[Rfam]
RNA sequence: GGUUUCUAUUGGUGCAAAUCCAAUCACCUCAAUUGGAGAUAAGAAGCAAUCACCAUUGGCAGCAAAUGGUUAUCCAUUAAGUGGGGGGAAUAGUAU
Numbered sequence: 001g002g003u004u005u006c007u008a009u010u011g012g013u014g015c016a017a018a019u020c021c022a023a024u025c026a027c028c029u030c031a032a033u034u035g036g037a038g039a040u041a042a043g044a045a046g047c048a049a050u051c052a053c054c055a056u057u058g059g060c061a062g063c064a065a066a067u068g069g070u071u072a073u074c075c076a077u078u079a080a081g082u083g084g085g086g087g088g089a090a091u092a093g094u095a096u
Stems, first nucleotide, its partner, number of pairs: 009023004051086001053084002055077002058074002061071003